[Rfam]
RNA sequence: AAAAUGGGCUUCUGUCGUGAGCGGCCCACGCAGGGCAGCUCAAUUGCUCUGCGUGCGGAAUCAACAUCAAGAGAUUGCGGAAGCAUAAUUUUUUGGUACCUGGGGAGCUGGUGAUCGUUGGUCCUGGAGCCCCCCC
Numbered sequence: 001a002a003a004a005u006g007g008g009c010u011u012c013u014g015u016c017g018u019g020a021g022c023g024g025c026c027c028a029c030g031c032a033g034g035g036c037a038g039c040u041c042a043a044u045u046g047c048u049c050u051g052c053g054u055g056c057g058g059a060a061u062c063a064a065c066a067u068c069a070a071g072a073g074a075u076u077g078c079g080g081a082a083g084c085a086u087a088a089u090u091u092u093u094u095g096g097u098a099c100c101u102g103g104g105g106a107g108c109u110g111g112u113g114a115u116c117g118u119u120g121g122u123c124c125u126g127g128a129g130c131c132c133c134c135c136c
Stems, first nucleotide, its partner, number of pairs: 008084005014025004027055012056079002059076004102134004107130001108127004113123004
Dot-bracket structure: .......(((((.((((....)))).((((((((((((.....))))))))))))((.((((..........)))).))))))).................((((.(((((.((((...))))))))..)))))..
RNA: U11 spliceosomal RNA